[Rfam]
RNA sequence: GAUCGUAUCAAACGCACUUAUCGUGGUGGGAAGGCGCAUGGGCAGGAUGGUGUAACCAUCCGGCGAAAGCACCCAUGCGCUACCGAAGGCUCCUCAAGGGGCCUUUUUUUAUGCCUUCAA
Numbered sequence: 001g002a003u004c005g006u007a008u009c010a011a012a013c014g015c016a017c018u019u020a021u022c023g024u025g026g027u028g029g030g031a032a033g034g035c036g037c038a039u040g041g042g043c044a045g046g047a048u049g050g051u052g053u054a055a056c057c058a059u060c061c062g063g064c065g066a067a068a069g070c071a072c073c074c075a076u077g078c079g080c081u082a083c084c085g086a087a088g089g090c091u092c093c094u095c096a097a098g099g100g101g102c103c104u105u106u107u108u109u110u111a112u113g114c115c116u117u118c119a120a
Base pairs, nucleotide, nucleotide: 009026029116030115033081034080035079036078037077038076039075040074041073042072045061046060047059048058049057050056063070064069086105087104088103089102090101091100092099093098
This 120-nucleotide RNA from Rhizobium sp. Root149 belongs to the Rfam family "Rhizobiales sRNA Atu_C8". The organism belongs to Rhizobium, within Bacteria. It is annotated as a small RNA. A search with the family's covariance model found it, with a score of 108 bits. Pairs were carried over by alignment from the consensus structure, which was predicted with CMfinder.